[Rfam]
RNA: U7 small nuclear RNA
RNA sequence: GGAUAUUUGCUCUUUUAGUUAUUGUCUAGAAGGUUUUCUGUAAAAGAGAACCCCA
Numbered sequence: 001g002g003a004u005a006u007u008u009g010c011u012c013u014u015u016u017a018g019u020u021a022u023u024g025u026c027u028a029g030a031a032g033g034u035u036u037u038c039u040g041u042a043a044a045a046g047a048g049a050a051c052c053c054c055a
Base pairs, nucleotide, nucleotide: 032052033051034050035049036048037047038046039045